Rfam assigns this 134-nucleotide RNA from Methylobacterium haplocladii to the family "speF leader". This family is a putative regulatory RNA structure that is found upstream of the speF gene encoding ornithine decarboxylase in Agrobacterium tumefaciens and other alpha-proteobacteria. A reference for the family is Corbino et al. (2005), "Evidence for a second class of S-adenosylmethionine riboswitches and other regulatory RNA motifs in alpha-proteobacteria", Genome Biol. A search with the family's covariance model found it, with a score of 42 bits. Rfam links the family to the GO term regulation of gene expression. NCBI's taxonomy places the organism under Bacteria, Pseudomonadati, Alphaproteobacteria, Hyphomicrobiales, Methylobacterium.

RNA sequence: CGUCGGCCCUCCAAAGGCCGGCACCGAAGAGGCUUGUUUCUCUUUGCCCGGCGUGCGGUUGGGGUUCCCCCAUCCAAUCCACGGCAGCUUCCGGGUGCUCUGCGCCCGCCCGCAGCGUCGUGUCUCCACAGCAC
Number, nucleotide and partner (000 for none) at each position: 001c000002g022003u021004c020005g019006g018007c017008c016009c000010u000011c000012c000013a000014a000015a000016g008017g007018c006019c005020g004021g003022c002023a000024c000025c000026g000027a000028a000029g000030a000031g048032g047033c046034u000035u000036g000037u000038u000039u000040c000041u000042c000043u000044u000045u000046g033047c032048c031049c000050g000051g000052c000053g000054u000055g134056c000057g132058g000059u000060u000061g000062g000063g000064g000065u000066u000067c000068c000069c000070c000071c000072a000073u000074c000075c000076a000077a000078u000079c095080c094081a000082c000083g000084g000085c000086a000087g000088c000089u000090u000091c000092c000093g000094g080095g079096u000097g000098c000099u000100c000101u000102g000103c117104g116105c115106c000107c000108g000109c000110c000111c000112g000113c000114a000115g105116c104117g103118u000119c000120g000121u000122g000123u000124c000125u000126c000127c000128a000129c000130a000131g000132c057133a000134c055